[Rfam]
RNA sequence: UAUUCUCAUGUGGAGGCUGUUUUGAGUACAACCCCAGUAUUAACCCGUUCUCUCACAACUCUAUGUACUUCGUACAUUACUGCCAGUCCCCAUGAAUAUUGUACA
Dot-bracket structure: .....(((((.((..((.(..(.(.((...)).).)((.(.(..........).)..))...(((((.....)))))..).))...))..)))))..........
A member of the RNA family "Mitochondrial DNA control region secondary structure A", 105 nucleotides long. Pairs were carried over by alignment from the consensus structure, which is taken from published work. Rfam 15.1 lists 795 matches to the family in 62 species. By type it is an antisense RNA. The literature on the family includes a 2008 paper in Mol Biol Evol by Pereira et al., "Evidence for variable selective pressures at a large secondary structure of the human mitochondrial DNA control region".